[Rfam]
Rfam assigns this 79-nucleotide sequence from Enterococcus asini to the family "L17 ribosomal protein downstream element". The organism belongs to Enterococcus asini, within Bacteria. The match comes from Rfam's covariance-model search (58 bits).
RNA sequence: AGAGUGUUAUGAUGUUGGAAGGGCUUGUCAACUUUUCCGAGUCUAGCUCAGCGCUACAUCCCGGCUUUUAGUCGGGAUG
Numbered sequence: 001a002g003a004g005u006g007u008u009a010u011g012a013u014g015u016u017g018g019a020a021g022g023g024c025u026u027g028u029c030a031a032c033u034u035u036u037c038c039g040a041g042u043c044u045a046g047c048u049c050a051g052c053g054c055u056a057c058a059u060c061c062c063g064g065c066u067u068u069u070a071g072u073c074g075g076g077a078u079g
Stems, first nucleotide, its partner, number of pairs: 002049004011043003017038006057079009